[Rfam]
About this RNA
Shown here is a 71-nucleotide RNA from Rhododendron williamsianum, a member of the family "Small nucleolar RNA snoR60". The source organism's lineage runs through Eukaryota, Embryophyta, Euphyllophyta, Pentapetalae and Rhododendron.

RNA sequence: CUGCAUAUGAUGAGUUACUCGGAUUCCCCUUCAAGACAUCAUGGGUGAUGAAAAACCGAGUUUCUGAUGCG
Numbered sequence: 001c002u003g004c005a006u007a008u009g010a011u012g013a014g015u016u017a018c019u020c021g022g023a024u025u026c027c028c029c030u031u032c033a034a035g036a037c038a039u040c041a042u043g044g045g046u047g048a049u050g051a052a053a054a055a056c057c058g059a060g061u062u063u064c065u066g067a068u069g070c071g
Base pairs, nucleotide, nucleotide: 002071003070004069005068
A search with the family's covariance model found it, with a score of 91 bits. Rfam classes the family as a C/D-box small nucleolar RNA. Its Rfam clan is "SNORD101 clan".